[Rfam]
RNA sequence: UGAGAAAUAACAGUGUAAUUCUCCCUUGGCAAAUGAAUAUAUGUGCAAACCAUAUAUAUUUUGGAUGACAUUAUAUUAUCUUUACCAAAGGAGAAUUGCCCUGUCAUUUUUCU
Numbered sequence: 001u002g003a004g005a006a007a008u009a010a011c012a013g014u015g016u017a018a019u020u021c022u023c024c025c026u027u028g029g030c031a032a033a034u035g036a037a038u039a040u041a042u043g044u045g046c047a048a049a050c051c052a053u054a055u056a057u058a059u060u061u062u063g064g065a066u067g068a069c070a071u072u073a074u075a076u077u078a079u080c081u082u083u084a085c086c087a088a089a090g091g092a093g094a095a096u097u098g099c100c101c102u103g104u105c106a107u108u109u110u111u112c113u
Base pairs, nucleotide, nucleotide: 005109006108007107008106011103012102013101015099016098017097018096019095021093022092023091024090027087028086029085031083032082033081035079

mir-399 microRNA precursor family: a 113-nucleotide RNA sequence from Capsicum baccatum. The family has 13 seed sequences and 2,396 matches in Rfam 15.1. About the family: mir-399 was identified in both Arabidopsis thaliana and Oryza sativa computationally and was later experimentally verified. mir-399 is thought to target mRNAs coding for a phosphatase transporter. The mature sequence is excised from the 3' arm of the hairpin. The match comes from Rfam's covariance-model search (59 bits).